[Rfam]
RNA sequence: UCCGUUCUUGUCUACGGGAGCAUAGUGUUCAAUGAUCGUAAAGUGAGAGUACUGAUGCUAUAAAACCCAUAUAAAUUAUAUGACCGCAUCCGUGUGUAGGGUUGUCUUAUACACGUGUUGCAAUUUUUGAAGGG
Numbered sequence: 001u002c003c004g005u006u007c008u009u010g011u012c013u014a015c016g017g018g019a020g021c022a023u024a025g026u027g028u029u030c031a032a033u034g035a036u037c038g039u040a041a042a043g044u045g046a047g048a049g050u051a052c053u054g055a056u057g058c059u060a061u062a063a064a065a066c067c068c069a070u071a072u073a074a075a076u077u078a079u080a081u082g083a084c085c086g087c088a089u090c091c092g093u094g095u096g097u098a099g100g101g102u103u104g105u106c107u108u109a110u111a112c113a114c115g116u117g118u119u120g121c122a123a124u125u126u127u128u129g130a131a132g133g134g
Base pairs, nucleotide, nucleotide: 005019006018007017008016020058021057022056023055024053025052026051027050028049029048030047037043086121087120088119090117094112095111096110097109098108099107
The family of this 134-nucleotide RNA from Cotesia congregata is "U4atac minor spliceosomal RNA". Rfam 15.1 lists 1,648 matches to the family in 818 species. The family is grouped with related families in Rfam's "U4 clan". For this family Rfam cites "Evolutionary conservation of minor U12-type spliceosome between plants and humans" (Lorkovic et al., RNA, 2005). The source organism's lineage runs through Eukaryota, Allotriocarida, Endopterygota, Microgastrinae and Cotesia. Rfam links the family to the GO terms spliceosomal tri-snRNP complex assembly, pre-mRNA 5'-splice site binding and U4atac snRNP.